A member of the RNA family "Burkholderia RNA 14" from Burkholderia pseudomallei, 173 nucleotides long. Its family is annotated with protein binding in the Gene Ontology. It scores 140 bits against the family's covariance model. Rfam classes the family as a small RNA. Co-purified with Hfq, expression confirmed by Northern blot. Putative functional homologue of PA-SraF. Overlaps coding sequence. Taxonomically the source falls in Burkholderia pseudomallei (Bacteria, Pseudomonadota, Betaproteobacteria, Burkholderiales). For this family Rfam cites "Experimental identification of small non-coding regulatory RNAs in the opportunistic human pathogen Burkholderia cenocepacia J2315" (Ramos et al., Genomics, 2013).
[Rfam]
RNA sequence: GUCGGCGUCGUCACCGUCCAGCCGCAGCCCGUGCCGGUCGUCUCCGAACUGCCGGGCCGUACGAGCGCCUAUCUGGUCGCGCAGGUGCGCGCACGGGUCGACGGCAUCGUGUUGCGGCGCGAGUUCACGGAAGGCAGCGACGUCAAGGCCGGCCAGCGCCUGUACAAGAUCGA
Number, nucleotide and partner (000 for none) at each position: 001g000002u000003c054004g053005g052006c051007g050008u047009c046010g045011u000012c000013a041014c040015c000016g038017u000018c037019c036020a000021g034022c033023c031024g030025c000026a000027g000028c000029c000030c024031g023032u000033g022034c021035c000036g019037g018038u016039c000040g014041u013042c000043u000044c000045c010046g009047a008048a000049c000050u007051g006052c005053c004054g003055g150056g149057c148058c147059g143060u142061a000062c000063g000064a000065g000066c000067g135068c134069c000070u133071a000072u131073c130074u000075g000076g000077u000078c000079g092080c091081g090082c089083a000084g000085g000086u000087g000088c000089g082090c081091g080092c079093a000094c121095g120096g000097g118098u000099c116100g115101a000102c114103g113104g112105c111106a110107u000108c000109g000110u106111g105112u104113u103114g102115c100116g099117g000118c097119g000120c095121g094122a000123g000124u000125u000126c000127a000128c000129g000130g073131a072132a000133g070134g068135c067136a000137g000138c000139g000140a000141c000142g060143u059144c000145a000146a000147g058148g057149c056150c055151g000152g000153c000154c000155a000156g000157c172158g171159c000160c168161u167162g000163u000164a000165c000166a000167a161168g160169a000170u000171c158172g157173a000